The record is a 96-nucleotide RNA sequence from Chiloscyllium punctatum, which matches "Vault RNA" in Rfam. From the family's description: This family of RNAs are found as part of the enigmatic vault ribonucleoprotein complex. On this family, see Stadler et al., Mol Biol Evol 2009: "Evolution of Vault RNAs". Lineage of the source: Eukaryota > Opisthokonta > Vertebrata > Chondrichthyes > Chiloscyllium.

[Rfam]
RNA sequence: UCGCUUGCUUUAGCUCAGUAGUUACUUGGAUUUCCUUGAAAUCCGUCUGGUCGCAUGUUCGCGUCCAGUUAACUACGGGUGCUGCCCGGCGCUUCA
Numbered sequence: 001u002c003g004c005u006u007g008c009u010u011u012a013g014c015u016c017a018g019u020a021g022u023u024a025c026u027u028g029g030a031u032u033u034c035c036u037u038g039a040a041a042u043c044c045g046u047c048u049g050g051u052c053g054c055a056u057g058u059u060c061g062c063g064u065c066c067a068g069u070u071a072a073c074u075a076c077g078g079g080u081g082c083u084g085c086c087c088g089g090c091g092c093u094u095c096a
Stems, first nucleotide, its partner, number of pairs: 002091004007086001013080004018076004026068005